RNA sequence: CCAGCACUCGUCAUUGGGGAGUAGCCGCUCUGCAUUGGCAGAGGCCCGCGUCAACACACUUGAUCCGCUCCGGAUCAUGGCGCGGGCAGCACCUGAGCCGUGUCCAUGGGAUGCGGCCUGAGGCCUGGCAAGACCUUUGACCUCACUGCCUCCGGU
Numbered sequence: 001c002c003a004g005c006a007c008u009c010g011u012c013a014u015u016g017g018g019g020a021g022u023a024g025c026c027g028c029u030c031u032g033c034a035u036u037g038g039c040a041g042a043g044g045c046c047c048g049c050g051u052c053a054a055c056a057c058a059c060u061u062g063a064u065c066c067g068c069u070c071c072g073g074a075u076c077a078u079g080g081c082g083c084g085g086g087c088a089g090c091a092c093c094u095g096a097g098c099c100g101u102g103u104c105c106a107u108g109g110g111a112u113g114c115g116g117c118c119u120g121a122g123g124c125c126u127g128g129c130a131a132g133a134c135c136u137u138u139g140a141c142c143u144c145a146c147u148g149c150c151u152c153c154g155g156u
Stems, first nucleotide, its partner, number of pairs: 029042003044087010061077005091156003
RNA: Manganese Mn2+ riboswitch aptamer (yybP-ykoY)
Organism: Roseateles toxinivorans